Bacterial small signal recognition particle RNA: a 97-nucleotide RNA sequence from Candidatus Williamhamiltonella defendens. Its Rfam clan is "SRP clan". The family's RNA type in Rfam is non-coding RNA gene. Lineage of the source: Bacteria > Pseudomonadati > ant, tsetse, mealybug, aphid, etc. endosymbionts > Candidatus Williamhamiltonella > Candidatus Williamhamiltonella defendens. A search with the family's covariance model found it, with a score of 58 bits.
RNA sequence: UGUUGGUCACCUGGUAAUACUCACUUGUGAAUUCGGUCAGGUCCGGAAGGAAGCAGCCGUAGCAGGCUUUGUAUGUAUUUGGAUGCAGCCAGCAGAG
Numbered sequence: 001u002g003u004u005g006g007u008c009a010c011c012u013g014g015u016a017a018u019a020c021u022c023a024c025u026u027g028u029g030a031a032u033u034c035g036g037u038c039a040g041g042u043c044c045g046g047a048a049g050g051a052a053g054c055a056g057c058c059g060u061a062g063c064a065g066g067c068u069u070u071g072u073a074u075g076u077a078u079u080u081g082g083a084u085g086c087a088g089c090c091a092g093c094a095g096a097g
Stems, first nucleotide, its partner, number of pairs: 004091004009084001011082004015075001017074004024066005034059004042051003